[Rfam]
RNA sequence: AAGUAAGGAAGAACGACUAAGACCGCCACAUCGUUAUGUCUUCGUCGUUCUGACCCACAUCGUGUGGG
Numbered sequence: 001a002a003g004u005a006a007g008g009a010a011g012a013a014c015g016a017c018u019a020a021g022a023c024c025g026c027c028a029c030a031u032c033g034u035u036a037u038g039u040c041u042u043c044g045u046c047g048u049u050c051u052g053a054c055c056c057a058c059a060u061c062g063u064g065u066g067g068g
Base pairs, nucleotide, nucleotide: 011050012049013048014047015046016045017044025040027038028037054068055067056066057065058064